[Rfam]
RNA sequence: UCGGCGAAUGUCGGUGGAACUACAGACUGUCACUCUCCAGGUUGCGGGUUCGAGUCCCGUCGCGUCGUUGCCCUUUGGGGACCGGCGCGUAGCUCAAACGGAUAGAGCGGGAGUUUCACCAAACCCUUGUCGCCGGGAC
Numbered sequence: 001u002c003g004g005c006g007a008a009u010g011u012c013g014g015u016g017g018a019a020c021u022a023c024a025g026a027c028u029g030u031c032a033c034u035c036u037c038c039a040g041g042u043u044g045c046g047g048g049u050u051c052g053a054g055u056c057c058c059g060u061c062g063c064g065u066c067g068u069u070g071c072c073c074u075u076u077g078g079g080g081a082c083c084g085g086c087g088c089g090u091a092g093c094u095c096a097a098a099c100g101g102a103u104a105g106a107g108c109g110g111g112a113g114u115u116u117c118a119c120c121a122a123a124c125c126c127u128u129g130u131c132g133c134c135g136g137g138a139c
Base pairs, nucleotide, nucleotide: 002135003134004133005132006131007130013120014119015118016117017116018115019114037111038110044060045059046058047057048056061089062088063087064086065085066084092108093107094106095105
Dot-bracket structure: .((((((.....(((((((.................((.....(((((.......)))))((((((.................))))))..((((.........)))).))..))))))).........))))))....